[Rfam]
The family of this 129-nucleotide sequence from Gracilibacillus halophilus is "ylbH leader".
Its family is annotated with regulation of gene expression in the Gene Ontology.
A reference for the family is Barrick et al. (2004), "New RNA motifs suggest an expanded scope for riboswitches in bacterial genetic control", Proc Natl Acad Sci U S A.
It scores 93 bits against the family's covariance model.
The pairing is the family consensus, mapped onto this sequence.
This family is a putative regulatory RNA structure that is found upstream of the ylbH gene in B. subtilis and related low GC Gram-positive bacteria.
It is annotated as a cis-regulatory leader.
RNA sequence: AUAAAAAAAGCCUGCAGUUGAUAAAACAACUGCAGGUUCUUUUUAUUUCCCGAUUCGGAAAAUAAAAAGAUAAAGGGAGAGGAGAAACCGGAGGAAGAACUUAUGGGGAAAAGUAAGUCUUCUCCGUAU
Numbered sequence: 001a002u003a004a005a006a007a008a009a010g011c012c013u014g015c016a017g018u019u020g021a022u023a024a025a026a027c028a029a030c031u032g033c034a035g036g037u038u039c040u041u042u043u044u045a046u047u048u049c050c051c052g053a054u055u056c057g058g059a060a061a062a063u064a065a066a067a068a069g070a071u072a073a074a075g076g077g078a079g080a081g082g083a084g085a086a087a088c089c090g091g092a093g094g095a096a097g098a099a100c101u102u103a104u105g106g107g108g109a110a111a112a113g114u115a116a117g118u119c120u121u122c123u124c125c126g127u128a129u
Stems, first nucleotide, its partner, number of pairs: 011036009037077005046062001047060004089126004094122004099118005